[Rfam]
RNA sequence: CCCCCGACGGGGCGAGAAGUCCCUGUGGAGCUUCACAGCAGCCUGUCGUUGCGGGGGGGCGGGGGGUGCAGAGCGUAGGUGGGAGCGAUGAAACGGGGUCUCCGGGCCCCGUGGAUGCGGCCCUGGAACACCACCCACUCUCCGCCCCUCCGCUUACCCGCCGCAAGGCGGGGACAGCGGCAGGCGGGCUGUUCGGCUGGGGCGGCACACCCCUGAAAAGAUAUCGGGGGUGCCCAAAGCUCGGCUCAGGCGGGUCAGAAAUCCGCCGUAGAGUGUAAGGGCAAAAGCCGGGCUGACUGGGCCCUUGAACGCAAGGGGCCCAGGCGGGAAACCGGGGCCUAGAGAACGCUCGUGCCCCCACCAGUGGGGGCCGGGCAUGACAGAAAAGUUACCCCAGGAAUAACCGGCUCGUCGCGGGUGAGAGUCCCCAUCGACCCCGCGGUUUGGUACCCAGACGUCGUCUCUUCCCAUCCUGGCGGUGCAGCAGCCGCCAAGGGUGGGGCUGCCCGCCCAUUAAAGGGGAACGUGAGAUGGGUUCAGACCGUCGCGAGACAGGUCGGUCUCUACCUGUCGGGGGCGUU
Numbered sequence: 001c002c003c004c005c006g007a008c009g010g011g012g013c014g015a016g017a018a019g020u021c022c023c024u025g026u027g028g029a030g031c032u033u034c035a036c037a038g039c040a041g042c043c044u045g046u047c048g049u050u051g052c053g054g055g056g057g058g059g060c061g062g063g064g065g066g067u068g069c070a071g072a073g074c075g076u077a078g079g080u081g082g083g084a085g086c087g088a089u090g091a092a093a094c095g096g097g098g099u100c101u102c103c104g105g106g107c108c109c110c111g112u113g114g115a116u117g118c119g120g121c122c123c124u125g126g127a128a129c130a131c132c133a134c135c136c137a138c139u140c141u142c143c144g145c146c147c148c149u150c151c152g153c154u155u156a157c158c159c160g161c162c163g164c165a166a167g168g169c170g171g172g173g174a175c176a177g178c179g180g181c182a183g184g185c186g187g188g189c190u191g192u193u194c195g196g197c198u199g200g201g202g203c204g205g206c207a208c209a210c211c212c213c214u215g216a217a218a219a220g221a222u223a224u225c226g227g228g229g230g231u232g233c234c235c236a237a238a239g240c241u242c243g244g245c246u247c248a249g250g251c252g253g254g255u256c257a258g259a260a261a262u263c264c265g266c267c268g269u270a271g272a273g274u275g276u277a278a279g280g281g282c283a284a285a286a287g288c289c290g291g292g293c294u295g296a297c298u299g300g301g302c303c304c305u306u307g308a309a310c311g312c313a314a315g316g317g318g319c320c321c322a323g324g325c326g327g328g329a330a331a332c333c334g335g336g337g338c339c340u341a342g343a344g345a346a347c348g349c350u351c352g353u354g355c356c357c358c359c360a361c362c363a364g365u366g367g368g369g370g371c372c373g374g375g376c377a378u379g380a381c382a383g384a385a386a387a388g389u390u391a392c393c394c395c396a397g398g399a400a401u402a403a404c405c406g407g408c409u410c411g412u413c414g415c416g417g418g419u420g421a422g423a424g425u426c427c428c429c430a431u432c433g434a435c436c437c438c439g440c441g442g443u444u445u446g447g448u449a450c451c452c453a454g455a456c457g458u459c460g461u462c463u464c465u466u467c468c469c470a471u472c473c474u475g476g477c478g479g480u481g482c483a484g485c486a487g488c489c490g491c492c493a494a495g496g497g498u499g500g501g502g503c504u505g506c507c508c509g510c511c512c513a514u515u516a517a518a519g520g521g522g523a524a525c526g527u528g529a530g531a532u533g534g535g536u537u538c539a540g541a542c543c544g545u546c547g548c549g550a551g552a553c554a555g556g557u558c559g560g561u562c563u564c565u566a567c568c569u570g571u572c573g574g575g576g577g578c579g580u581u
Stems, first nucleotide, its partner, number of pairs: 001577008010569003014564002022398004027394002029390005035192004042184007051153018078135005085118003096109005157172004195208001196206003209231006234337002240292006246272002249267006273282002297323009325334001327332001348376005354371001356370004407448003411445001412442007422432002459534001460532004464526001465523005472497002476491005500512004540558004544553003